[Rfam]
RNA sequence: CAUGCUGUGAUGAGAUGAGCACCAUAUGGUGUUAUAGGGCAGUGGAAGUGAGGUUUUAUAGCCUUCUCCGUGAGCCCAUUUUAAUUAAUGACUUCUCCUUCCACUGAGCAUU
Numbered sequence: 001c002a003u004g005c006u007g008u009g010a011u012g013a014g015a016u017g018a019g020c021a022c023c024a025u026a027u028g029g030u031g032u033u034a035u036a037g038g039g040c041a042g043u044g045g046a047a048g049u050g051a052g053g054u055u056u057u058a059u060a061g062c063c064u065u066c067u068c069c070g071u072g073a074g075c076c077c078a079u080u081u082u083a084a085u086u087a088a089u090g091a092c093u094u095c096u097c098c099u100u101c102c103a104c105u106g107a108g109c110a111u112u
Stems, first nucleotide, its partner, number of pairs: 002111004
RNA: Small nucleolar RNA Z152/R70/R12/
Organism: Nicotiana attenuata